[Rfam]
RNA sequence: GCGCGGGCCGUGUUAACCGGACGCGACAGGGAUGGCGAACAUGGCGGUUUUCCGGUUUCUCGCCAUGGCCAACGAACCGGCGCACGAGCGCCCAACCUGUCCGGCAC
Numbered sequence: 001g002c003g004c005g006g007g008c009c010g011u012g013u014u015a016a017c018c019g020g021a022c023g024c025g026a027c028a029g030g031g032a033u034g035g036c037g038a039a040c041a042u043g044g045c046g047g048u049u050u051u052c053c054g055g056u057u058u059c060u061c062g063c064c065a066u067g068g069c070c071a072a073c074g075a076a077c078c079g080g081c082g083c084a085c086g087a088g089c090g091c092c093c094a095a096c097c098u099g100u101c102c103g104g105c106a107c
Stems, first nucleotide, its partner, number of pairs: 007105003011023004025101006034092004040067007068081003
RNA: Rhizobiales sRNA Atu_At1
Organism: Rhizobium sp. P32RR-XVIII